The family of this 169-nucleotide RNA from Blautia sp. OF03-15BH is "Clostridiales-1 RNA". By type it is a small RNA. Lineage of the source: Bacteria > Clostridia > Lachnospirales > Lachnospiraceae > Blautia.
[Rfam]
RNA sequence: UGAUACCAGGGUUCCAAAGUCAAACGCUGUUCGUGCUCGCACGAUAAAGCGUUUGACCUUGGAACCCGCCAAACAUGAGAAAGCAGCGAUUUACGCAGUAAAUCAGCGGAUUUCGAAUGUUUGCAGAAUUGCGGGAGCUGCUUUGCAGCGAAGCAAUUCGCAGGUAUCA
Numbered sequence: 001u002g003a004u005a006c007c008a009g010g011g012u013u014c015c016a017a018a019g020u021c022a023a024a025c026g027c028u029g030u031u032c033g034u035g036c037u038c039g040c041a042c043g044a045u046a047a048a049g050c051g052u053u054u055g056a057c058c059u060u061g062g063a064a065c066c067c068g069c070c071a072a073a074c075a076u077g078a079g080a081a082a083g084c085a086g087c088g089a090u091u092u093a094c095g096c097a098g099u100a101a102a103u104c105a106g107c108g109g110a111u112u113u114c115g116a117a118u119g120u121u122u123g124c125a126g127a128a129u130u131g132c133g134g135g136a137g138c139u140g141c142u143u144u145g146c147a148g149c150g151a152a153g154c155a156a157u158u159c160g161c162a163g164g165u166a167u168c169a
Stems, first nucleotide, its partner, number of pairs: 001169007010066004016060002019057010030046001031044005070123007079114004086107002088104007126159007137149004
Dot-bracket structure: (((((((..((((..((.((((((((((.((((((....))))).).)))))))))).))..))))...(((((((..((((...(((((((((...))))))).))...))))..)))))))..(((((((....((((.....))))...)))))))...)))))))